[Rfam]
RNA sequence: ACAGGUUGGAGGCCAUAGCAGCAGUGCUCAUGGCGCAGCCCCGUCAGAUUCCAACGAUUCUGCCAAUUCUGCU
Numbered sequence: 001a002c003a004g005g006u007u008g009g010a011g012g013c014c015a016u017a018g019c020a021g022c023a024g025u026g027c028u029c030a031u032g033g034c035g036c037a038g039c040c041c042c043g044u045c046a047g048a049u050u051c052c053a054a055c056g057a058u059u060c061u062g063c064c065a066a067u068u069c070u071g072c073u
Base pairs, nucleotide, nucleotide: 009041011040012039013038017073018072019071020070021069023067024036025035026034045062046061047060048059050057051056
RNA: Mammalian CPEB3 ribozyme